[Rfam]
RNA sequence: CAUUUCCGACAGGGGAGCGCUACGCGCUGAGAGUGCGGCACCGCAGGGGCCGCAGACCCUCGGACCUGAUCCGGGUCAUACCGGCGUAGGGAGUCAGACGCACUGAUGA
Numbered sequence: 001c002a003u004u005u006c007c008g009a010c011a012g013g014g015g016a017g018c019g020c021u022a023c024g025c026g027c028u029g030a031g032a033g034u035g036c037g038g039c040a041c042c043g044c045a046g047g048g049g050c051c052g053c054a055g056a057c058c059c060u061c062g063g064a065c066c067u068g069a070u071c072c073g074g075g076u077c078a079u080a081c082c083g084g085c086g087u088a089g090g091g092a093g094u095c096a097g098a099c100g101c102a103c104u105g106a107u108g109a
Stems, first nucleotide, its partner, number of pairs: 006097001008095003011060004017027004034054005065090004071084004

This 109-nucleotide sequence from Streptomyces buecherae belongs to the Rfam family "TPP riboswitch aptamer (THI element)".
Its family is annotated with thiamine pyrophosphate binding in the Gene Ontology.
Vitamin B(1) in its active form thiamin pyrophosphate (TPP) is an essential coenzyme that is synthesised by coupling of pyrimidine and thiazole moieties in bacteria. The previously detected thiamin-regulatory element, thi box was extended, resulting in a new, highly conserved RNA secondary structure, the THI element, which is widely distributed in eubacteria and also occurs in some archaea. Analysis of operon structures identified a large number of new candidate thiamin-regulated genes, mostly transporters, in various prokaryotic organisms. The THI element is a riboswitch that directly binds to TPP to regulate gene expression through a variety of mechanisms in archaea, bacteria and eukaryotes. through a variety of mechanisms in archaea, bacteria and eukaryotes. Tandem TPP riboswitches have been reported where both TPP riboswitches respond independently to TPP. The structure of TPP riboswitch has been reported for Escherichia coli and Arabidopsis thaliana.